The family of this 354-nucleotide RNA sequence from Ectocarpus siliculosus is "RNase MRP". It scores 79 bits against the family's covariance model. By type it is a ribozyme. NCBI's taxonomy places the organism under Eukaryota, Sar, Phaeophyceae, Ectocarpaceae, Ectocarpus.

RNA sequence: GGAACGCAGCACGGACUGCUAUCGGGCGGCCUCCUCCUGCACCCCAGAGGCUGCAACCCCUCCAGCCCUGGGAGGAGGAGGUGUCUAGCCUGGGGAAAUUCCCCGGAUACUUGGGCAGAGAGUGCCAUCCGGAACCCGGAACAACCCUCGAGCGCCCCUGGCAACAUGCGGCGUAGAUGAGUGGUGGUGGCAGGUGGGGUGUCGUCGCUCUCGGGCGGCGUGCGCUCCUCCUGCUUCGCCUCUCGGAGUCCUAGCCGGGCGCUCGGGCCGUUUUCAUCACAGCAUAGAAAUGCAGUCAGCGUCGGCGCCUCCGCCGUGCCGGCGCCAACUCGACGGGGAUUACCUGCCGCGUUU
Numbered sequence: 001g002g003a004a005c006g007c008a009g010c011a012c013g014g015a016c017u018g019c020u021a022u023c024g025g026g027c028g029g030c031c032u033c034c035u036c037c038u039g040c041a042c043c044c045c046a047g048a049g050g051c052u053g054c055a056a057c058c059c060c061u062c063c064a065g066c067c068c069u070g071g072g073a074g075g076a077g078g079a080g081g082u083g084u085c086u087a088g089c090c091u092g093g094g095g096a097a098a099u100u101c102c103c104c105g106g107a108u109a110c111u112u113g114g115g116c117a118g119a120g121a122g123u124g125c126c127a128u129c130c131g132g133a134a135c136c137c138g139g140a141a142c143a144a145c146c147c148u149c150g151a152g153c154g155c156c157c158c159u160g161g162c163a164a165c166a167u168g169c170g171g172c173g174u175a176g177a178u179g180a181g182u183g184g185u186g187g188u189g190g191c192a193g194g195u196g197g198g199g200u201g202u203c204g205u206c207g208c209u210c211u212c213g214g215g216c217g218g219c220g221u222g223c224g225c226u227c228c229u230c231c232u233g234c235u236u237c238g239c240c241u242c243u244c245g246g247a248g249u250c251c252u253a254g255c256c257g258g259g260c261g262c263u264c265g266g267g268c269c270g271u272u273u274u275c276a277u278c279a280c281a282g283c284a285u286a287g288a289a290a291u292g293c294a295g296u297c298a299g300c301g302u303c304g305g306c307g308c309c310u311c312c313g314c315c316g317u318g319c320c321g322g323c324g325c326c327a328a329c330u331c332g333a334c335g336g337g338g339a340u341u342a343c344c345u346g347c348c349g350c351g352u353u354u
Stems, first nucleotide, its partner, number of pairs: 002354006009347003014297006022093006031077009097341003101338004114126004128140005145267002150264006159257004170250003179244003299325010
RNase MRP is an enzymatically active ribonucleoprotein with two distinct roles in eukaryotes.